[Rfam]
RNA sequence: AAAGUCCUUUACGAUGAAGAACUAGCGAAUCACAUCGACCCCGAGUGAUGCGGGGGCACUCGCGAGGGUGUCACCGAAGCGUUGACAGGGGCGCACGUAGGCCAGCCAUUGAGCGACGAAAGACUUCCCAAUCGGAGUGCUGAUGCUUUCCAGUCAGCAGAAGGCAAUACGUCCCACCGCGAUAUCGCGAGCGGCGGGCGGCUCCGCGUCGUCUGUAGACCC
Numbered sequence: 001a002a003a004g005u006c007c008u009u010u011a012c013g014a015u016g017a018a019g020a021a022c023u024a025g026c027g028a029a030u031c032a033c034a035u036c037g038a039c040c041c042c043g044a045g046u047g048a049u050g051c052g053g054g055g056g057c058a059c060u061c062g063c064g065a066g067g068g069u070g071u072c073a074c075c076g077a078a079g080c081g082u083u084g085a086c087a088g089g090g091g092c093g094c095a096c097g098u099a100g101g102c103c104a105g106c107c108a109u110u111g112a113g114c115g116a117c118g119a120a121a122g123a124c125u126u127c128c129c130a131a132u133c134g135g136a137g138u139g140c141u142g143a144u145g146c147u148u149u150c151c152a153g154u155c156a157g158c159a160g161a162a163g164g165c166a167a168u169a170c171g172u173c174c175c176a177c178c179g180c181g182a183u184a185u186c187g188c189g190a191g192c193g194g195c196g197g198g199c200g201g202c203u204c205c206g207c208g209u210c211g212u213c214u215g216u217a218g219a220c221c222c
Base pairs, nucleotide, nucleotide: 012037013036014035015034016033019031020030023190025188026187039091040090041089042088045086046085048083049081050080051076052075053074055072056071057070058069059068060067061066111213113212114211115210116209117208118207133206134205135204136203137202138201139165140164141163144159145158146157147156170200171199173198174197175196177194178193179192180191
A member of the RNA family "Group II catalytic intron D1-D4-6" from Burkholderia oklahomensis, 222 nucleotides long. The sequence is in the family's curated seed alignment. A reference for the family is Bonen and Vogel (2001), "The ins and outs of group II introns", Trends Genet.